RNA sequence: AUUAAAUUAGGUGAUGGAGUUCACCUUAACUGCUAAUUUUAGCUAAUGACUCCUACAAGUUA
Numbered sequence: 001a002u003u004a005a006a007u008u009a010g011g012u013g014a015u016g017g018a019g020u021u022c023a024c025c026u027u028a029a030c031u032g033c034u035a036a037u038u039u040u041a042g043c044u045a046a047u048g049a050c051u052c053c054u055a056c057a058a059g060u061u062a
Base pairs, nucleotide, nucleotide: 010025011024012023013022016053017052018051019050020049021048032043033042034041035040
RNA: Fluoride riboswitch aptamer (crcB RNA motif)